[Rfam]
RNA sequence: GCAGCUGUAACCGUAAGGGGAAAGCAAAGUAAUUUGCGCAGCCUUUAAGGGAUGUUACUCAUGCCACGAGAAAUUCAAUAUAUAAGAGCUCUCGUCUAUUGCAAGAUAUAAGUUACUGAGCAUGUUAUGUUGGAAAGAUAACAUGCUGUAGUAAUAAUGAAUUGCGGAACGCCUUAGGCUGGAAACAGAGCAGGGUUAGCAAUCGCUUGUAUACGGUGCAAAGUUUGCGAUGAGCGAUUAGUA
Numbered sequence: 001g002c003a004g005c006u007g008u009a010a011c012c013g014u015a016a017g018g019g020g021a022a023a024g025c026a027a028a029g030u031a032a033u034u035u036g037c038g039c040a041g042c043c044u045u046u047a048a049g050g051g052a053u054g055u056u057a058c059u060c061a062u063g064c065c066a067c068g069a070g071a072a073a074u075u076c077a078a079u080a081u082a083u084a085a086g087a088g089c090u091c092u093c094g095u096c097u098a099u100u101g102c103a104a105g106a107u108a109u110a111a112g113u114u115a116c117u118g119a120g121c122a123u124g125u126u127a128u129g130u131u132g133g134a135a136a137g138a139u140a141a142c143a144u145g146c147u148g149u150a151g152u153a154a155u156a157a158u159g160a161a162u163u164g165c166g167g168a169a170c171g172c173c174u175u176a177g178g179c180u181g182g183a184a185a186c187a188g189a190g191c192a193g194g195g196u197u198a199g200c201a202a203u204c205g206c207u208u209g210u211a212u213a214c215g216g217u218g219c220a221a222a223g224u225u226u227g228c229g230a231u232g233a234g235c236g237a238u239u240a241g242u243a
Stems, first nucleotide, its partner, number of pairs: 011049001069242001072239001088235004092230004096223002099221005106212008115152003119147010130137002155159001161203005171196004179188003
Dot-bracket structure: ..........(.....................................)...................(..(...............((((((((((.(((((..((((((((.(((.((((((((((.((....))))))))))))..)))..(...).(((((.....((((....(((....)))....))))..))))).))))))))....)))))))...)))).))))...)..).

Protozoan signal recognition particle RNA: a 243-nucleotide sequence from Plasmodium berghei. By type it is a non-coding RNA gene. A reference for the family is Batey et al. (2001), "Structural and energetic analysis of RNA recognition by a universally conserved protein from the signal recognition particle", J Mol Biol. The family is grouped with related families in Rfam's "SRP clan". The base pairs follow the family's consensus structure, which is taken from published work. Its family is annotated with signal recognition particle, endoplasmic reticulum targeting and SRP-dependent cotranslational protein targeting to membrane, signal sequence recognition in the Gene Ontology.